RNA sequence: GCCUCGUGGACCUGCGAGGGGGAGAUGAGGUGGACGUGGGUGUCGAUGCCGCCGGCGGUGAGGAUGCGGCCCUCGCCGGAGACGACGUCGGUGGACGGGCCGAUGCGCAGGGCGGGGUGGACGCCGUCGGCGACGUCGGGGUUCCCGGCGCGGCCGAUGCCGCACACCACGCCGUCGCGCAGGCCGACGUCGGCGCGGUAGAUCCCGGUGUGGUCCAGCACGACCGCGUUGGUGAUGACGGUGUCGGGCGCGCCCUGGGCCCGGGUCGUGGUGCCCUGGGCCAUGGACUCGCGGAU
Numbered sequence: 001g002c003c004u005c006g007u008g009g010a011c012c013u014g015c016g017a018g019g020g021g022g023a024g025a026u027g028a029g030g031u032g033g034a035c036g037u038g039g040g041u042g043u044c045g046a047u048g049c050c051g052c053c054g055g056c057g058g059u060g061a062g063g064a065u066g067c068g069g070c071c072c073u074c075g076c077c078g079g080a081g082a083c084g085a086c087g088u089c090g091g092u093g094g095a096c097g098g099g100c101c102g103a104u105g106c107g108c109a110g111g112g113c114g115g116g117g118u119g120g121a122c123g124c125c126g127u128c129g130g131c132g133a134c135g136u137c138g139g140g141g142u143u144c145c146c147g148g149c150g151c152g153g154c155c156g157a158u159g160c161c162g163c164a165c166a167c168c169a170c171g172c173c174g175u176c177g178c179g180c181a182g183g184c185c186g187a188c189g190u191c192g193g194c195g196c197g198g199u200a201g202a203u204c205c206c207g208g209u210g211u212g213g214u215c216c217a218g219c220a221c222g223a224c225c226g227c228g229u230u231g232g233u234g235a236u237g238a239c240g241g242u243g244u245c246g247g248g249c250g251c252g253c254c255c256u257g258g259g260c261c262c263g264g265g266u267c268g269u270g271g272u273g274c275c276c277u278g279g280g281c282c283a284u285g286g287a288c289u290c291g292c293g294g295a296u
Stems, first nucleotide, its partner, number of pairs: 001296001003294001005293005013164004018160001019077002022074003031054003035051002038049001040047002058070002078155002083150002086147001091145001093143002096140001098137003108130001110128002114124001172279003177274003180270002183267001184265002193227003207216002231261002237255001241253003
Dot-bracket structure: (.(.(((((...((((.(((.(((......(((.((.(.((....)).))))))...((.........)).))).))((...((.(....(.((.(.(((.......(.((..(.........)..)).)....)))..).)).).).))...))....))))).......(((..(((((.(((.......(((...........((......))........)))...((....(...(((.......))).)....))..)).).)).)))..))).........)))))).)